[Rfam]
RNA sequence: UAUGAAAUGACAUGCUUCUUUAUAUGCCCAUAUGGAUUAGGCUACUAUGGAAUGUAAGGAAGUGUGUGGUUUCAAG
Numbered sequence: 001u002a003u004g005a006a007a008u009g010a011c012a013u014g015c016u017u018c019u020u021u022a023u024a025u026g027c028c029c030a031u032a033u034g035g036a037u038u039a040g041g042c043u044a045c046u047a048u049g050g051a052a053u054g055u056a057a058g059g060a061a062g063u064g065u066g067u068g069g070u071u072u073c074a075a076g
Stems, first nucleotide, its partner, number of pairs: 007070002010067016028050005

mir-1 microRNA precursor family: a 76-nucleotide RNA from Centropus unirufus. From the family's description: This family represents the microRNA (miRNA) mir-1 family. miRNAs are transcribed as ~70nt precursors (modelled here) and subsequently processed by the Dicer enzyme to give a ~22nt product. In this case the mature sequence comes from the 3' arm of the precursor. The extents of the hairpin precursors are not generally known and are estimated based on hairpin prediction. The products are thought to have regulatory roles through complementarity to mRNA. The involvement of Dicer in miRNA processing suggests a relationship with the phenomenon of RNA interference. miRNAs are numbered based on the sequence of the mature RNA. This family also contains the mir-206 from human, which appears to be related to mir-1. Rfam links the family to the GO terms miRNA-mediated post-transcriptional gene silencing and RISC complex. The literature on the family includes a 2001 paper in Science by Lee and Ambros, "An extensive class of small RNAs in Caenorhabditis elegans".